[Rfam]
RNA sequence: GAAUAACACUUUUUACUAUCCCAGCCAAUAACACAAUGACACGUGGGAUAACUUUUUCAUGUGUCAUUGUGUUAUUAACUGGGAAUAGCAAAACAGUGGUAUUC
Numbered sequence: 001g002a003a004u005a006a007c008a009c010u011u012u013u014u015a016c017u018a019u020c021c022c023a024g025c026c027a028a029u030a031a032c033a034c035a036a037u038g039a040c041a042c043g044u045g046g047g048a049u050a051a052c053u054u055u056u057u058c059a060u061g062u063g064u065c066a067u068u069g070u071g072u073u074a075u076u077a078a079c080u081g082g083g084a085a086u087a088g089c090a091a092a093a094c095a096g097u098g099g100u101a102u103u104c
Base pairs, nucleotide, nucleotide: 002103003102004101005100011093012092013091014090016088017087018086019085020083021082022081023080024079027076028075029074030073031072032071033070034069035068036067037066038065039064040063041062042061043060044059045058046057047056048055
Dot-bracket structure: .((((.....((((.(((((((((..((((((((((((((((((((((......))))))))))))))))))))))..))))).)))).))))......)))).

This 104-nucleotide sequence from Prunus persica belongs to the Rfam family "MIR6274 microRNA precursor family". Gene Ontology terms of the family: RISC complex and miRNA-mediated post-transcriptional gene silencing. The base pairs follow the family's consensus structure, which was predicted with RNAalifold. Taxonomically the source falls in Prunus (Eukaryota, Mesangiospermae, rosids, fabids).